[Rfam]
RNA sequence: UGGAUUUAGGCACAAUGCGCGGCCUGCAAAAUUCGAGAUAACCGACGUAAACUGUUUUAAUUAACCGUGCGUCGGUUAUUUUUUUGC
Numbered sequence: 001u002g003g004a005u006u007u008a009g010g011c012a013c014a015a016u017g018c019g020c021g022g023c024c025u026g027c028a029a030a031a032u033u034c035g036a037g038a039u040a041a042c043c044g045a046c047g048u049a050a051a052c053u054g055u056u057u058u059a060a061u062u063a064a065c066c067g068u069g070c071g072u073c074g075g076u077u078a079u080u081u082u083u084u085u086g087c
Stems, first nucleotide, its partner, number of pairs: 010020002039078011
Dot-bracket structure: .........((.......))..................(((((((((((..................))))))))))).........

Shown here is an 87-nucleotide sequence from bacteria symbiont BFo2 of Frankliniella occidentalis, a member of the family "Enterobacterial sRNA STnc240". NCBI's taxonomy places the organism under Bacteria, Pseudomonadati, Pseudomonadota, Gammaproteobacteria, Enterobacterales.